RNA sequence: AUGAAAAAAACCUGCAGCAUUUGCUGCAGGUUGCCUUUAAAACAAAAUCACUUCUGUUCAAAGGCGAUGGGAGAGGAGAAACCGGAUGAAGAACUUAUGGGGAGUAAGUCUUCUCCGCGG
Numbered sequence: 001a002u003g004a005a006a007a008a009a010a011c012c013u014g015c016a017g018c019a020u021u022u023g024c025u026g027c028a029g030g031u032u033g034c035c036u037u038u039a040a041a042a043c044a045a046a047a048u049c050a051c052u053u054c055u056g057u058u059c060a061a062a063g064g065c066g067a068u069g070g071g072a073g074a075g076g077a078g079a080a081a082c083c084g085g086a087u088g089a090a091g092a093a094c095u096u097a098u099g100g101g102g103a104g105u106a107a108g109u110c111u112u113c114u115c116c117g118c119g120g
Base pairs, nucleotide, nucleotide: 010031011030012029013028014027015026016025017024018023032071034069036067041058042057043056044055046053083117084116085115086114088113089112090111091110093109094108095107096106097105
The family of this 120-nucleotide RNA sequence from Fictibacillus arsenicus is "ylbH leader".
By type it is a cis-regulatory leader.
Pairs were carried over by alignment from the consensus structure.
For this family Rfam cites "New RNA motifs suggest an expanded scope for riboswitches in bacterial genetic control" (Barrick et al., Proc Natl Acad Sci U S A, 2004).
Its family is annotated with regulation of gene expression in the Gene Ontology.
From the family's description: This family is a putative regulatory RNA structure that is found upstream of the ylbH gene in B. subtilis and related low GC Gram-positive bacteria.